The family of this 121-nucleotide sequence from Musa acuminata is "U5 spliceosomal RNA". U5 RNA is a component of both types of known spliceosome. The precise function of this molecule is unknown, though it is known that the 5' loop is required for splice site selection and p220 binding, and that both the 3' stem-loop and the Sm site are important for Sm protein binding and cap methylation. It scores 93 bits against the family's covariance model. The organism belongs to Musa acuminata, within Eukaryota. Rfam classes the family as a spliceosomal small nuclear RNA.
RNA sequence: AGCUGCGUGGUGAGCACAGAGCGAACUAUUCUUUCGCCUUUUACUAAAGAAUACCGUGUGCACGCCACAUAAAGCAGCAUACGCCAAUUUUUGGAGGGAUUCGUCUCUUUUAGAGAGGGGU
Numbered sequence: 001a002g003c004u005g006c007g008u009g010g011u012g013a014g015c016a017c018a019g020a021g022c023g024a025a026c027u028a029u030u031c032u033u034u035c036g037c038c039u040u041u042u043a044c045u046a047a048a049g050a051a052u053a054c055c056g057u058g059u060g061c062a063c064g065c066c067a068c069a070u071a072a073a074g075c076a077g078c079a080u081a082c083g084c085c086a087a088u089u090u091u092u093g094g095a096g097g098g099a100u101u102c103g104u105c106u107c108u109u110u111u112a113g114a115g116a117g118g119g120g121u
Stems, first nucleotide, its partner, number of pairs: 003077004008067005014061005027053008095121001102120001104118004